[Rfam]
RNA sequence: ACACGAGAGAGGAGGUGGUCCACCGGUGUAUUCCAGUAGGACGCGUGAGGUGGCUGUCCGCUAAGGACCACCCAUCAACGAUGGUUGCCGGCUCCGCCCACGGCAGACACCGGGUCCUCCCGGUGCCGUAGGCGCGGCGCGUGGUCGGCGAAUACCAGGCAGUCACCCAGCCCUCGGGCCCCCGGGGUAGUCCGUCCCGGGCCCUCCUCCGCGCUUCGGCGUGGGAGAGGGAGCCAGCCCGGGGGCUGUGCCCU
Numbered sequence: 001a002c003a004c005g006a007g008a009g010a011g012g013a014g015g016u017g018g019u020c021c022a023c024c025g026g027u028g029u030a031u032u033c034c035a036g037u038a039g040g041a042c043g044c045g046u047g048a049g050g051u052g053g054c055u056g057u058c059c060g061c062u063a064a065g066g067a068c069c070a071c072c073c074a075u076c077a078a079c080g081a082u083g084g085u086u087g088c089c090g091g092c093u094c095c096g097c098c099c100a101c102g103g104c105a106g107a108c109a110c111c112g113g114g115u116c117c118u119c120c121c122g123g124u125g126c127c128g129u130a131g132g133c134g135c136g137g138c139g140c141g142u143g144g145u146c147g148g149c150g151a152a153u154a155c156c157a158g159g160c161a162g163u164c165a166c167c168c169a170g171c172c173c174u175c176g177g178g179c180c181c182c183c184g185g186g187g188u189a190g191u192c193c194g195u196c197c198c199g200g201g202c203c204c205u206c207c208u209c210c211g212c213g214c215u216u217c218g219g220c221g222u223g224g225g226a227g228a229g230g231g232a233g234c235c236a237g238c239c240c241g242g243g244g245g246c247u248g249u250g251c252c253c254u
Stems, first nucleotide, its partner, number of pairs: 014058006059150004064145001068144004073139001168248012182200006
RNA: Actinobacteria sRNA Ms_IGR-5
Organism: Actinokineospora spheciospongiae